Rfam assigns this 399-nucleotide sequence from Trichoderma arundinaceum to the family "Nuclear RNase P". Rfam's curators write: Ribonuclease P (RNase P) is a ubiquitous endoribonuclease, found in archaea, bacteria and eukarya as well as chloroplasts and mitochondria. Its best characterised activity is the generation of mature 5'-ends of tRNAs by cleaving the 5'-leader elements of precursor-tRNAs. Cellular RNase Ps are ribonucleoproteins. RNA from bacterial RNase Ps retains its catalytic activity in the absence of the protein subunit, i.e. it is a ribozyme. The match comes from Rfam's covariance-model search (60 bits). The family's RNA type in Rfam is ribozyme.
RNA sequence: GCCCUCUUCAACGCUGCGUUUCCAUGCUACAAACAGAGAGACUGCGCAAGCAGCCUCUCACUCUUCUUCAUUGCAUGUGGGAAAUUCGGAGAAAGCUUCAAAGCAGGAGGGGCCUCGCGUCCCUCCUGUGCUCGUUCCACGCCGCCCGCCUUGGUGGGCGCCGUGUGCAUCGAGUCCGCCUGUGAUGGCCUGGCGUCACCCCGACGUCUGCAACAGACAUCAGAAAUCUCAGGCCCGGGAGGCCCUGUGUGUAUACCUCUCGGGGGAAGACAUGGGUUUAGUCCCGGUGCCUAUGGGAAGUCGUUGCGAAGCUUGUUGCGCAAACUUGAGUGCGAUAUGCAGCGUUUGUUUUGCUUUUUGCAAGAUGAAUCACACAAUUCCGAUCAUUCUGUUGAGGGC
Numbered sequence: 001g002c003c004c005u006c007u008u009c010a011a012c013g014c015u016g017c018g019u020u021u022c023c024a025u026g027c028u029a030c031a032a033a034c035a036g037a038g039a040g041a042c043u044g045c046g047c048a049a050g051c052a053g054c055c056u057c058u059c060a061c062u063c064u065u066c067u068u069c070a071u072u073g074c075a076u077g078u079g080g081g082a083a084a085u086u087c088g089g090a091g092a093a094a095g096c097u098u099c100a101a102a103g104c105a106g107g108a109g110g111g112g113c114c115u116c117g118c119g120u121c122c123c124u125c126c127u128g129u130g131c132u133c134g135u136u137c138c139a140c141g142c143c144g145c146c147c148g149c150c151u152u153g154g155u156g157g158g159c160g161c162c163g164u165g166u167g168c169a170u171c172g173a174g175u176c177c178g179c180c181u182g183u184g185a186u187g188g189c190c191u192g193g194c195g196u197c198a199c200c201c202c203g204a205c206g207u208c209u210g211c212a213a214c215a216g217a218c219a220u221c222a223g224a225a226a227u228c229u230c231a232g233g234c235c236c237g238g239g240a241g242g243c244c245c246u247g248u249g250u251g252u253a254u255a256c257c258u259c260u261c262g263g264g265g266g267a268a269g270a271c272a273u274g275g276g277u278u279u280a281g282u283c284c285c286g287g288u289g290c291c292u293a294u295g296g297g298a299a300g301u302c303g304u305u306g307c308g309a310a311g312c313u314u315g316u317u318g319c320g321c322a323a324a325c326u327u328g329a330g331u332g333c334g335a336u337a338u339g340c341a342g343c344g345u346u347u348g349u350u351u352u353g354c355u356u357u358u359u360g361c362a363a364g365a366u367g368a369a370u371c372a373c374a375c376a377a378u379u380c381c382g383a384u385c386a387u388u389c390u391g392u393u394g395a396g397g398g399c
Stems, first nucleotide, its partner, number of pairs: 001399004009391002013343007023077004036059005087382005096311004192208006210307005216301001231292003344370011